The family of this 111-nucleotide RNA from Alkalicoccus urumqiensis is "TPP riboswitch aptamer (THI element)".
RNA sequence: GAUGUGCACUGGAGGUGCCCUUUAAGAGGGCUGAGAUCGAAGCGGAUAACUUCGGGACUCCCAGAACCUGAUCCAGUUGAUACUGGCGGAGGGAAGUGACGGAACGAGAGG
Dot-bracket structure: ......((((((((.((((((.....)))))......(((((.......))))))..)))).....(((...((((......))))...)))..)))).............